[Rfam]
RNA sequence: CCAGGGGCUUGCGCCCCUGGCUACAUCACUUCGCCCCUCCGGAGCU
Numbered sequence: 001c002c003a004g005g006g007g008c009u010u011g012c013g014c015c016c017c018u019g020g021c022u023a024c025a026u027c028a029c030u031u032c033g034c035c036c037c038u039c040c041g042g043a044g045c046u
Base pairs, nucleotide, nucleotide: 001020002019003018004017005016006015007014008013033045034044036042037041

This 46-nucleotide sequence from Lacipirellula parvula belongs to the Rfam family "Acido-Lenti-1 RNA". The organism belongs to Lacipirellula, within Bacteria. It scores 41 bits against the family's covariance model.